[Rfam]
RNA sequence: GGCUGCCUGAGGGGAAGGUACCCCAAGUACGAGAGGAACAGGGUACCGGGGCCUCUAGUUUACCGGUUGUCCGGUAGGGCAGUGCCGGGCAGCCACGCCCUGUGGGGUAACCGCUGAAAGCAUCUAAGCGGGAACCCCUCCCCGAAAAGAGGCAGCCAUGCGGGGUAACCCGCGAGAGCCCACCCCUAGAAGAGGGGAUUGAUGGGGGCGGGGUGUAAGUCCCGAGGGCGAAAGUCCGAGGGAUUUAGCCCGCGCCUCCCAAUCGGGCAAGCC
Numbered sequence: 001g002g003c004u005g006c007c008u009g010a011g012g013g014g015a016a017g018g019u020a021c022c023c024c025a026a027g028u029a030c031g032a033g034a035g036g037a038a039c040a041g042g043g044u045a046c047c048g049g050g051g052c053c054u055c056u057a058g059u060u061u062a063c064c065g066g067u068u069g070u071c072c073g074g075u076a077g078g079g080c081a082g083u084g085c086c087g088g089g090c091a092g093c094c095a096c097g098c099c100c101u102g103u104g105g106g107g108u109a110a111c112c113g114c115u116g117a118a119a120g121c122a123u124c125u126a127a128g129c130g131g132g133a134a135c136c137c138c139u140c141c142c143c144g145a146a147a148a149g150a151g152g153c154a155g156c157c158a159u160g161c162g163g164g165g166u167a168a169c170c171c172g173c174g175a176g177a178g179c180c181c182a183c184c185c186c187u188a189g190a191a192g193a194g195g196g197g198a199u200u201g202a203u204g205g206g207g208g209c210g211g212g213g214u215g216u217a218a219g220u221c222c223c224g225a226g227g228g229c230g231a232a233a234g235u236c237c238g239a240g241g242g243a244u245u246u247a248g249c250c251c252g253c254g255c256c257u258c259c260c261a262a263u264c265g266g267g268c269a270a271g272c273c
Stems, first nucleotide, its partner, number of pairs: 001157008011143004017047007048101005056095001058093001063088005068081005104138003111131005178268004183197004203261003206257005211251003219244005226237003

A member of the RNA family "Archaeal large subunit ribosomal RNA" from Saccharolobus islandicus, 273 nucleotides of a longer RNA. The organism belongs to Saccharolobus islandicus, within Archaea. Its family is annotated with ribosome and structural constituent of ribosome in the Gene Ontology.